[Rfam]
mir-320 microRNA precursor family: a 76-nucleotide RNA from Sapajus apella.
RNA sequence: AAAUAAAUAGGCCUUCUCCUCCCGGUUCUUCCCGGAGUUGGGAAAAGCUGGGUUGAGAGGGUGAAAAAAAUAAAUA
Numbered sequence: 001a002a003a004u005a006a007a008u009a010g011g012c013c014u015u016c017u018c019c020u021c022c023c024g025g026u027u028c029u030u031c032c033c034g035g036a037g038u039u040g041g042g043a044a045a046a047g048c049u050g051g052g053u054u055g056a057g058a059g060g061g062u063g064a065a066a067a068a069a070a071u072a073a074a075u076a
Stems, first nucleotide, its partner, number of pairs: 014059005021052005029044006

The base pairs follow the family's consensus structure, which was predicted with RNAalifold.
A reference for the family is Berezikov et al. (2006), "Many novel mammalian microRNA candidates identified by extensive cloning and RAKE analysis", Genome Res.
Rfam links the family to the GO terms negative regulation of gene expression, cellular response to glucose stimulus and miRNA-mediated post-transcriptional gene silencing.
The organism belongs to Sapajus, within Eukaryota.